[Rfam]
RNA sequence: AUAAUCCUUCGGGGCGGGGUGCAAUUCCCCACCGGCGGUGAUGAGGGUUUACCCUCUUAGUCCGUGACCCGCGUAUUCGUUUUUUAUUAAUAAGCGGCUGACCUAGUGUAAGUCUAGGACCGACAGUAAUAGUCUGGAUGGGAGAAGGAGAGC
Numbered sequence: 001a002u003a004a005u006c007c008u009u010c011g012g013g014g015c016g017g018g019g020u021g022c023a024a025u026u027c028c029c030c031a032c033c034g035g036c037g038g039u040g041a042u043g044a045g046g047g048u049u050u051a052c053c054c055u056c057u058u059a060g061u062c063c064g065u066g067a068c069c070c071g072c073g074u075a076u077u078c079g080u081u082u083u084u085u086a087u088u089a090a091u092a093a094g095c096g097g098c099u100g101a102c103c104u105a106g107u108g109u110a111a112g113u114c115u116a117g118g119a120c121c122g123a124c125a126g127u128a129a130u131a132g133u134c135u136g137g138a139u140g141g142g143a144g145a146a147g148g149a150g151a152g153c
Stems, first nucleotide, its partner, number of pairs: 005149006017029003031133002033122002035065004060120002069097004102118005124136003
A member of the RNA family "FMN riboswitch aptamer (RFN element)" from Alkalihalobacillus alcalophilus, 153 nucleotides long. A search with the family's covariance model found it, with a score of 107 bits. The organism belongs to Alkalihalobacillus alcalophilus, within Bacteria.